[Rfam]
RNA sequence: CUGAUCGGGGGUCGCCCCCCGUCAGCGCGUCGCGCCCACGGGGGCAGUUGGC
Numbered sequence: 001c002u003g004a005u006c007g008g009g010g011g012u013c014g015c016c017c018c019c020c021g022u023c024a025g026c027g028c029g030u031c032g033c034g035c036c037c038a039c040g041g042g043g044g045c046a047g048u049u050g051g052c
Stems, first nucleotide, its partner, number of pairs: 016044007025035004
Rfam assigns this 52-nucleotide sequence from Rhodobacteraceae bacterium R_SAG10 to the family "ffh sRNA". Taxonomically the source falls in Paracoccaceae (Bacteria, Pseudomonadota, Alphaproteobacteria, Rhodobacterales). It is annotated as a small RNA. The match comes from Rfam's covariance-model search (59 bits).